Shown here is a 416-nucleotide RNA from Paenibacillus sp. FSL H7-0737, a member of the family "Bacterial RNase P class A". Ribonuclease P (RNase P) is a ubiquitous endoribonuclease, found in archaea, bacteria and eukarya as well as chloroplasts and mitochondria. The base pairs follow the family's consensus structure, which is taken from published work. Rfam classes the family as a ribozyme.
[Rfam]
RNA sequence: AAAGUUUGACAGACAAUCGCCGGUGACGUGAAGACGUCACGGGAGGAAAGUCCGGGCUCCAUAAGGCAGGAUGCUGGAUAACGUCCAGUCGGCGCGAGUCGAAGGAUAGUGCCACAGAAAUGGACCGCCGAUGGCCGCCUUAGGGCGGCACAGGCAAGGAUGGAACCGAGGUGUAAGAGACCCCGAGGAACGCUGGUGACUUCGUUCCUGGUAAACCCCAUCUGGAGCAAGACCUAAUGAGACGCAGCAGAUUCCUUUAUUGGAAUAGGCAGCCUUAGCCUGAGGCGCGUCUAGGUUGGUCGCUGGAGCUGUGCAGUAAUGUACGGCCUAGAUAGAUGAUUGUCGCUUAUGGUGGGAGGGUAGUUCCCGAUUGAACCACGACGAGCACAGAACCCGGCUUACGGCAAACUUUCCUA
Number, nucleotide and partner (000 for none) at each position: 001a412002a411003a410004g409005u408006u407007u406008g405009a000010c403011a000012g344013a343014c342015a341016a340017u339018c338019g000020c043021c042022g000023g040024u039025g038026a037027c036028g035029u000030g000031a000032a000033g000034a000035c028036g027037u026038c025039a024040c023041g000042g021043g020044a000045g000046g000047a000048a400049a399050g398051u000052c397053c396054g395055g394056g393057c227058u226059c225060c224061a000062u000063a000064a281065g280066g279067c278068a000069g223070g222071a221072u220073g219074c088075u087076g086077g085078a084079u000080a000081a000082c000083g000084u078085c077086c076087a075088g074089u103090c101091g100092g099093c098094g000095c000096g000097a000098g093099u092100c091101g090102a000103a089104g218105g217106a000107u000108a000109g216110u215111g212112c211113c210114a000115c000116a000117g000118a000119a000120a000121u000122g000123g000124a000125c159126c158127g155128c154129c153130g000131a000132u000133g000134g149135c148136c147137g146138c145139c144140u000141u000142a000143g000144g139145g138146c137147g136148g135149c134150a000151c000152a000153g129154g128155c127156a000157a000158g126159g125160a000161u000162g000163g000164a000165a000166c000167c185168g184169a000170g182171g181172u180173g000174u000175a000176a000177g000178a000179g000180a172181c171182c170183c000184c168185g167186a000187g208188g207189a206190a205191c204192g203193c000194u000195g200196g000197u000198g000199a000200c195201u000202u000203c192204g191205u190206u189207c188208c187209u000210g113211g112212u111213a000214a000215a110216c109217c105218c104219c073220a072221u071222c070223u069224g060225g059226a058227g057228c000229a000230a000231g301232a300233c299234c298235u000236a000237a000238u000239g000240a292241g291242a290243c289244g288245c287246a000247g000248c000249a000250g000251a000252u000253u000254c000255c000256u000257u000258u000259a000260u000261u000262g000263g000264a000265a000266u000267a000268g000269g000270c000271a000272g286273c285274c284275u283276u282277a000278g067279c066280c065281u064282g276283a275284g274285g273286c272287g245288c244289g243290u242291c241292u240293a000294g000295g000296u000297u000298g234299g233300u232301c231302g000303c000304u000305g000306g000307a000308g327309c326310u325311g324312u323313g322314c321315a320316g000317u000318a000319a000320u315321g314322u313323a312324c311325g310326g309327c308328c000329u000330a000331g000332a000333u000334a000335g000336a000337u000338g018339a017340u016341u015342g014343u013344c012345g000346c000347u000348u000349a000350u000351g000352g000353u000354g000355g000356g000357a000358g000359g000360g000361u000362a000363g000364u000365u000366c000367c000368c000369g000370a000371u000372u000373g000374a000375a000376c000377c000378a000379c000380g000381a000382c000383g000384a000385g000386c000387a000388c000389a000390g000391a000392a000393c056394c055395c054396g053397g052398c050399u049400u048401a000402c000403g010404g000405c008406a007407a006408a005409c004410u003411u002412u001413c000414c000415u000416a000